The family of this 143-nucleotide sequence from Flavobacterium pygoscelis is "Flavo-1 RNA". By type it is a small RNA.
[Rfam]
RNA sequence: UCCUAGCCCAGAUAGCAGUGGAAAGCAUUUGGCAAAAAAAGACAAUUUUUGUUGUUCUAAUAAAGCGACUGUAAGAAGCUCUUAUUAGGACUUACAAAAAUGUAUUUUUUUGCUAAAUCUUGUAACGGAUAGCUGGAAAUAGC
Numbered sequence: 001u002c003c004u005a006g007c008c009c010a011g012a013u014a015g016c017a018g019u020g021g022a023a024a025g026c027a028u029u030u031g032g033c034a035a036a037a038a039a040a041g042a043c044a045a046u047u048u049u050u051g052u053u054g055u056u057c058u059a060a061u062a063a064a065g066c067g068a069c070u071g072u073a074a075g076a077a078g079c080u081c082u083u084a085u086u087a088g089g090a091c092u093u094a095c096a097a098a099a100a101u102g103u104a105u106u107u108u109u110u111u112g113c114u115a116a117a118u119c120u121u122g123u124a125a126c127g128g129a130u131a132g133c134u135g136g137a138a139a140u141a142g143c
Stems, first nucleotide, its partner, number of pairs: 009135003013131002018126002023121003029116012